[Rfam]
Annotation: The record is an 82-nucleotide RNA from Callorhinchus milii, which matches "mir-181 microRNA precursor family" in Rfam. It scores 75 bits against the family's covariance model. Rfam links the family to the GO terms RISC complex and miRNA-mediated post-transcriptional gene silencing. For this family Rfam cites "microRNAs: tiny regulators with great potential" (Ambros, Cell, 2001).
RNA sequence: UGGUUUCAGGGAACAUUCAACGCUGUCGGUGAGUUUGAUGCUAUUGGAGAAACCAUCGACCGUUGAUUGUACCUUGUAUCCA
Numbered sequence: 001u002g003g004u005u006u007c008a009g010g011g012a013a014c015a016u017u018c019a020a021c022g023c024u025g026u027c028g029g030u031g032a033g034u035u036u037g038a039u040g041c042u043a044u045u046g047g048a049g050a051a052a053c054c055a056u057c058g059a060c061c062g063u064u065g066a067u068u069g070u071a072c073c074u075u076g077u078a079u080c081c082a
Stems, first nucleotide, its partner, number of pairs: 001082003005078001007076002014069002017066006025060007033053004
Dot-bracket structure: (((.(.((.....((.((((((..(((((((.((((.............))))))))))))))))).)).....)).).)))

The base pairs follow the family's consensus structure, which was predicted with PFOLD.